This 259-nucleotide sequence from Chlorella sorokiniana belongs to the Rfam family "Group I catalytic intron". Rfam's curators write: Group I catalytic introns are large self-splicing ribozymes.

RNA sequence: GGUACAACUUCACUCAUAUUUUGAGCCUUUAAAGGGAAACUUUUAAAGUGAAUGCUCUCAAAUUCAGGGAAACUUAUUGAUUAAUUAAAUUUUUUAAGUAAUCCUGAGUCAACUUAAGAAAAAUUUUCUUAAGAGGUGCAGAGACUCGACGGGAGCUAUCCUAAUACAAAAACAAGAUUGAAUAAAUCCUCUCUCCAGAGGAACUCUUUUUUACUGUGAGGAUAAAGAGAGAGUCCAGUUUCAUAUCUGAAAAUCCGUU
Numbered sequence: 001g002g003u004a005c006a007a008c009u010u011c012a013c014u015c016a017u018a019u020u021u022u023g024a025g026c027c028u029u030u031a032a033a034g035g036g037a038a039a040c041u042u043u044u045a046a047a048g049u050g051a052a053u054g055c056u057c058u059c060a061a062a063u064u065c066a067g068g069g070a071a072a073c074u075u076a077u078u079g080a081u082u083a084a085u086u087a088a089a090u091u092u093u094u095u096a097a098g099u100a101a102u103c104c105u106g107a108g109u110c111a112a113c114u115u116a117a118g119a120a121a122a123a124u125u126u127u128c129u130u131a132a133g134a135g136g137u138g139c140a141g142a143g144a145c146u147c148g149a150c151g152g153g154a155g156c157u158a159u160c161c162u163a164a165u166a167c168a169a170a171a172a173c174a175a176g177a178u179u180g181a182a183u184a185a186a187u188c189c190u191c192u193c194u195c196c197a198g199a200g201g202a203a204c205u206c207u208u209u210u211u212u213a214c215u216g217u218g219a220g221g222a223u224a225a226a227g228a229g230a231g232a233g234u235c236c237a238g239u240u241u242c243a244u245a246u247c248u249g250a251a252a253a254u255c256c257g258u259u
Base pairs, nucleotide, nucleotide: 001027002026003025005023006022033042034041035040054156055155056154057153059151064107065106066105067104068103069102073098074097075096076095108137109136115131116130117129118128119127141236143235144234145233146232147231159222160221161220162219164217165216166215242257245254246253